RNA sequence: UCCGUCGCGAGGCGGGGUCUGAAGGAAGCGUGUAGCAAAACCACGACUCGACGAACAGGAAUCGGAUAAGAGGCAUGGCAGAUGGGACGAGUCCGCACGACAGUGACGAAGUCCUCCAUCCAUCAAAGGUCUGCUCUGUAAAUCCGGCGGGUGCGUGGUGAAAGUCGAGAAA
Numbered sequence: 001u002c003c004g005u006c007g008c009g010a011g012g013c014g015g016g017g018u019c020u021g022a023a024g025g026a027a028g029c030g031u032g033u034a035g036c037a038a039a040a041c042c043a044c045g046a047c048u049c050g051a052c053g054a055a056c057a058g059g060a061a062u063c064g065g066a067u068a069a070g071a072g073g074c075a076u077g078g079c080a081g082a083u084g085g086g087a088c089g090a091g092u093c094c095g096c097a098c099g100a101c102a103g104u105g106a107c108g109a110a111g112u113c114c115u116c117c118a119u120c121c122a123u124c125a126a127a128g129g130u131c132u133g134c135u136c137u138g139u140a141a142a143u144c145c146g147g148c149g150g151g152u153g154c155g156u157g158g159u160g161a162a163a164g165u166c167g168a169g170a171a172a
Stems, first nucleotide, its partner, number of pairs: 001016006031170001035165002040159006046152005062147006073139003077135007085114004091107003094103001
Shown here is a 172-nucleotide RNA from Rubripirellula reticaptiva, a member of the family "Group II catalytic intron D1-D4-3". Rfam links the family to the GO term Group II intron splicing. NCBI's taxonomy places the organism under Bacteria, Planctomycetia, Pirellulales, Pirellulaceae, Rubripirellula. It scores 136 bits against the family's covariance model.